[Rfam]
RNA sequence: GAUGGUAAAUCCAUCAGAGUUGUUGUAUAGGCAAUGGUUCUAAACCCCCCCAAGGUGAUUUGAUUGAUAGUCUUGGUAUUGAGCGUUAAGUAUAAUCCAAUCCACUAGGUUGGCAAGU
Numbered sequence: 001g002a003u004g005g006u007a008a009a010u011c012c013a014u015c016a017g018a019g020u021u022g023u024u025g026u027a028u029a030g031g032c033a034a035u036g037g038u039u040c041u042a043a044a045c046c047c048c049c050c051c052a053a054g055g056u057g058a059u060u061u062g063a064u065u066g067a068u069a070g071u072c073u074u075g076g077u078a079u080u081g082a083g084c085g086u087u088a089a090g091u092a093u094a095a096u097c098c099a100a101u102c103c104a105c106u107a108g109g110u111u112g113g114c115a116a117g118u
Stems, first nucleotide, its partner, number of pairs: 001015005016041006023034004046117001049090001052087002054080002057077001059075001062072003097113005

A member of the RNA family "Group II catalytic intron D1-D4-2" from Psychroflexus torquis, 118 nucleotides long. The source organism's lineage runs through Bacteria, Pseudomonadati, Flavobacteriia, Flavobacteriales and Psychroflexus torquis. The sequence is in the family's curated seed alignment. Rfam links the family to the GO term Group II intron splicing. From the family's description: Group II introns are found in rRNA, tRNA and mRNA of organelles in fungi, plants and protists, and also in mRNA in bacteria.